The family of this 172-nucleotide RNA from Agrilus planipennis is "R2 RNA element".

RNA sequence: AGAUAGUCACACCGAAUUUAUUACAAACUUAUCUAUGCUAGAAACUUAGAUAUUUAGAACGGCCUGAGGUAGAGGGGUUUUAGUUUGUAGGUCCGAGGACUUCUUCCUCGGGAAUCCAACACUACCCAGUCGUACGGACGGCUGGGUGUCUUUUGAAGAUUUCCCCUCUUCC
Numbered sequence: 001a002g003a004u005a006g007u008c009a010c011a012c013c014g015a016a017u018u019u020a021u022u023a024c025a026a027a028c029u030u031a032u033c034u035a036u037g038c039u040a041g042a043a044a045c046u047u048a049g050a051u052a053u054u055u056a057g058a059a060c061g062g063c064c065u066g067a068g069g070u071a072g073a074g075g076g077g078u079u080u081u082a083g084u085u086u087g088u089a090g091g092u093c094c095g096a097g098g099a100c101u102u103c104u105u106c107c108u109c110g111g112g113a114a115u116c117c118a119a120c121a122c123u124a125c126c127c128a129g130u131c132g133u134a135c136g137g138a139c140g141g142c143u144g145g146g147u148g149u150c151u152u153u154u155g156a157a158g159a160u161u162u163c164c165c166c167u168c169u170u171c172c
Base pairs, nucleotide, nucleotide: 030052031051032050033049034048035047061172062171071169072168073167074166075165076164077163083120084119085118087116092112093111094110095109096108097107098106099105122148124147125146126145127144128143
The family has 15 seed sequences and 3,698 matches in Rfam 15.1. A reference for the family is Ruschak et al. (2004), "Secondary structure models of the 3' untranslated regions of diverse R2 RNAs", RNA. A search with the family's covariance model found it, with a score of 49 bits. The organism belongs to Agrilus, within Eukaryota. This family represents the 3' UTR region of the R2 retrotransposable element. This family is known to interact with the R2-encoded reverse transcriptase in a reaction known as target primed reverse transcription (TPRT).